[Rfam]
This 73-nucleotide RNA sequence from Cavia porcellus belongs to the Rfam family "Small nucleolar RNA SNORD93". The family's consensus secondary structure was predicted with RNAalifold. The organism belongs to Cavia, within Eukaryota.
RNA sequence: UGGCCAAAGAUGAGAACUCUAACCUGAAUGGCUGUGUUCUGCUCUGAUGGGUUAAAGGAUUUACCUGAGGCCA
Number, nucleotide and partner (000 for none) at each position: 001u000002g072003g071004c070005c069006a000007a000008a000009g000010a000011u000012g000013a000014g000015a000016a000017c000018u000019c000020u000021a000022a000023c000024c000025u000026g000027a000028a000029u000030g000031g000032c000033u000034g000035u000036g000037u000038u000039c000040u000041g000042c000043u000044c000045u000046g000047a000048u000049g000050g000051g000052u000053u000054a000055a000056a000057g000058g000059a000060u000061u000062u000063a000064c000065c000066u000067g000068a000069g005070g004071c003072c002073a000